[Rfam]
RNA sequence: ACGUUAUCACGAAAGGCAGAGGGACUAGACCCAAUGAAGCCUUGGCAACCCUACUCUCGUAGAAGGUGCUACAUUCUACCACUGAUUGUGGACAGAUAACAA
Numbered sequence: 001a002c003g004u005u006a007u008c009a010c011g012a013a014a015g016g017c018a019g020a021g022g023g024a025c026u027a028g029a030c031c032c033a034a035u036g037a038a039g040c041c042u043u044g045g046c047a048a049c050c051c052u053a054c055u056c057u058c059g060u061a062g063a064a065g066g067u068g069c070u071a072c073a074u075u076c077u078a079c080c081a082c083u084g085a086u087u088g089u090g091g092a093c094a095g096a097u098a099a100c101a102a
Stems, first nucleotide, its partner, number of pairs: 003100006013043005021032003026078004044070004049066002051062004074094001079091004
RNA: SAM riboswitch aptamer (S box leader)